[Rfam]
RNA sequence: GCAACAUCGGCUUCGCCCGCGAGAGCCGCACGGUGUUCCUGGCGAUCCUCGGCAUCUCCUGGUUCUGGCUGUACGGCGCGCUGCUGCUCGCCCAGUUCCCGGCCUACGCCAAGGACGUGCUG
Numbered sequence: 001g002c003a004a005c006a007u008c009g010g011c012u013u014c015g016c017c018c019g020c021g022a023g024a025g026c027c028g029c030a031c032g033g034u035g036u037u038c039c040u041g042g043c044g045a046u047c048c049u050c051g052g053c054a055u056c057u058c059c060u061g062g063u064u065c066u067g068g069c070u071g072u073a074c075g076g077c078g079c080g081c082u083g084c085u086g087c088u089c090g091c092c093c094a095g096u097u098c099c100c101g102g103c104c105u106a107c108g109c110c111a112a113g114g115a116c117g118u119g120c121u122g
Stems, first nucleotide, its partner, number of pairs: 010048001013045002017042003021038003025034002051121005057115004062110001067099002072094001075092004080087002
RNA: Burkholderia RNA 11
Organism: Pseudomonas oryzae